Description
The record is a 442-nucleotide part of an RNA from Maricaulis maris, which matches "Bacterial large subunit ribosomal RNA" in Rfam.

[Rfam]
RNA sequence: CUCCGCGAAAUCUAUUUAGGUAGAGCGUCUCGUGAAUACCCAUGGGGGUAGAGCACUGGAUGGGCUAGGGGGUCCCAACGACUUACCAAACCUAACCAAACUCCGAAUACCAUGGAGUACUGCGAGGCAGACACACUGCGGGUGCUAAGGUCCGUAGUGAAGAGGGAAACAGCCCUGACCGCCAGCUAAGGUCCCUAAGUUAUCACUAAGUGGGAAACGAUGUGGGAGUGCUUAGACAACCAGGAGGUUGGCUUAGAAGCAGCCAUCCUUUAAAGAAAGCGUAACAGCUCACUGGUCAAGCGCUCCUGCGCGGAAAAUGUAACGGGGCUUAAGUGAUACACCGAAGCUGCGGAUUCGAUCUUUGAUCGAGUGGUAGCGGAGCGUUCCGUAGGCCGAUGAAGGUGGACCCGCGAGGGCCGCUGGAGGUAUCGGAAGUGAGAAU
Numbered sequence: 001c002u003c004c005g006c007g008a009a010a011u012c013u014a015u016u017u018a019g020g021u022a023g024a025g026c027g028u029c030u031c032g033u034g035a036a037u038a039c040c041c042a043u044g045g046g047g048g049u050a051g052a053g054c055a056c057u058g059g060a061u062g063g064g065c066u067a068g069g070g071g072g073u074c075c076c077a078a079c080g081a082c083u084u085a086c087c088a089a090a091c092c093u094a095a096c097c098a099a100a101c102u103c104c105g106a107a108u109a110c111c112a113u114g115g116a117g118u119a120c121u122g123c124g125a126g127g128c129a130g131a132c133a134c135a136c137u138g139c140g141g142g143u144g145c146u147a148a149g150g151u152c153c154g155u156a157g158u159g160a161a162g163a164g165g166g167a168a169a170c171a172g173c174c175c176u177g178a179c180c181g182c183c184a185g186c187u188a189a190g191g192u193c194c195c196u197a198a199g200u201u202a203u204c205a206c207u208a209a210g211u212g213g214g215a216a217a218c219g220a221u222g223u224g225g226g227a228g229u230g231c232u233u234a235g236a237c238a239a240c241c242a243g244g245a246g247g248u249u250g251g252c253u254u255a256g257a258a259g260c261a262g263c264c265a266u267c268c269u270u271u272a273a274a275g276a277a278a279g280c281g282u283a284a285c286a287g288c289u290c291a292c293u294g295g296u297c298a299a300g301c302g303c304u305c306c307u308g309c310g311c312g313g314a315a316a317a318u319g320u321a322a323c324g325g326g327g328c329u330u331a332a333g334u335g336a337u338a339c340a341c342c343g344a345a346g347c348u349g350c351g352g353a354u355u356c357g358a359u360c361u362u363u364g365a366u367c368g369a370g371u372g373g374u375a376g377c378g379g380a381g382c383g384u385u386c387c388g389u390a391g392g393c394c395g396a397u398g399a400a401g402g403u404g405g406a407c408c409c410g411c412g413a414g415g416g417c418c419g420c421u422g423g424a425g426g427u428a429u430c431g432g433a434a435g436u437g438a439g440a441a442u
Stems, first nucleotide, its partner, number of pairs: 001381006011024005026130001027128007036121001040115006051104001052102002057098003061094004068087002070084005134159010164175003179352004184348003190342003199339001201338006218312002222309010239296005245269003250264003270274001275290001279288002353371008382437001384434005392427003401421005407416003
Rfam links the family to the GO terms ribosome and structural constituent of ribosome. A reference for the family is Yusupov et al. (2001), "Crystal structure of the ribosome at 5.5 A resolution", Science. Pairs were carried over by alignment from the consensus structure, which is taken from published work.